[Rfam]
Shown here is a 180-nucleotide RNA, a member of the family "malK-I RNA". It is annotated as a cis-regulatory element.
RNA sequence: AUCCAUGGCGCGCGGGCACUCCAUUACCAUGUCCGCACGUACAUAAAGAUAGGAGGAACAGAACGUCCGUUAGGCUUGCGGUGCGUCAGUGUGGAGACCUGGCGUAAUGCUGCGCGCCGGUUUUGGCGGCAGCGAGGCGCACUCUUGCGGAGGCAGGUGCGCUAAAGCCGGAAAAUGUCA
Numbered sequence: 001a002u003c004c005a006u007g008g009c010g011c012g013c014g015g016g017c018a019c020u021c022c023a024u025u026a027c028c029a030u031g032u033c034c035g036c037a038c039g040u041a042c043a044u045a046a047a048g049a050u051a052g053g054a055g056g057a058a059c060a061g062a063a064c065g066u067c068c069g070u071u072a073g074g075c076u077u078g079c080g081g082u083g084c085g086u087c088a089g090u091g092u093g094g095a096g097a098c099c100u101g102g103c104g105u106a107a108u109g110c111u112g113c114g115c116g117c118c119g120g121u122u123u124u125g126g127c128g129g130c131a132g133c134g135a136g137g138c139g140c141a142c143u144c145u146u147g148c149g150g151a152g153g154c155a156g157g158u159g160c161g162c163u164a165a166a167g168c169c170g171g172a173a174a175a176u177g178u179c180a
Stems, first nucleotide, its partner, number of pairs: 008040003012036007067081004071171001073169005082106008091098002109133005115128003136163008146155003